[Rfam]
RNA sequence: CGGAUAGAGUCGGCGUAUCUUUCAAGUAUUCAUUUACAUUAUUUUUAUGUUGUGCUCUCUGAGCUCCAGAUUGGGACAGAGGGAAGCAGCAUAAUUUUCUGUGAUGCAUUUACUUGUUCGGUGCUUGGGGAUGUUUGAGGCAGAUUUGUAUCCGCAGUUUUGAGGCCAGCUUGCUGGUACCCAAACGGUGUUAGCAUUUUUUGUCUUGGACAUUUGAGUAUGGCUUACGGUCAUUUAUCGGUUCGAUCUGGGUGUAAGUUACGGUCGCAUGCGACACGUGCUUUUCAAUUAGUUCGGUCCAGUUAAUGCUCUCGUACUCCUUCCCCAUGUAAAAGCCGGUCAUCUAUCCGACCCGUCUUGAAACACGG
Dot-bracket structure: (((((((((.(.....(.....((((((..................................................................................)))))).)...(((.((((((..............................................................................................................................................................................................)))))).))).......).).))))))))..((((........))))

A member of the RNA family "Eukaryotic large subunit ribosomal RNA" from Meloidogyne incognita, 368 nucleotides of a longer RNA. The sequence is in the family's curated seed alignment.